[Rfam]
RNA sequence: UGCUGUGAUGAAUCAACUCUGGAAUCUCGUUCGGCUGAAGGCUGAUGUUGAGGAUUCGGACUCUGAUGCUC
Numbered sequence: 001u002g003c004u005g006u007g008a009u010g011a012a013u014c015a016a017c018u019c020u021g022g023a024a025u026c027u028c029g030u031u032c033g034g035c036u037g038a039a040g041g042c043u044g045a046u047g048u049u050g051a052g053g054a055u056u057c058g059g060a061c062u063c064u065g066a067u068g069c070u071c
Stems, first nucleotide, its partner, number of pairs: 025053005032047002035044001
RNA: Small nucleolar RNA SNORD30
Organism: Apteryx australis